[Rfam]
RNA sequence: AGUGGGAGGGGGCCACAGAAGGAGCGUUCUCAUCGCAGCCCCUGUGAGGCUUUGCCUGUGAAUCCUUCC
Number, nucleotide and partner (000 for none) at each position: 001a000002g000003u000004g000005g000006g000007a000008g000009g042010g041011g040012g039013c038014c000015a000016c000017a000018g068019a067020a066021g065022g064023a063024g036025c035026g034027u000028u000029c000030u000031c000032a000033u000034c026035g025036c024037a000038g013039c012040c011041c010042c009043u000044g000045u000046g000047a057048g056049g055050c054051u000052u000053u000054g050055c049056c048057u047058g000059u000060g000061a000062a000063u023064c022065c021066u020067u019068c018069c000
Rfam assigns this 69-nucleotide RNA sequence from Eptatretus burgeri to the family "Mammalian CPEB3 ribozyme". Pairs were carried over by alignment from the consensus structure, which is taken from published work. The match comes from Rfam's covariance-model search (53 bits).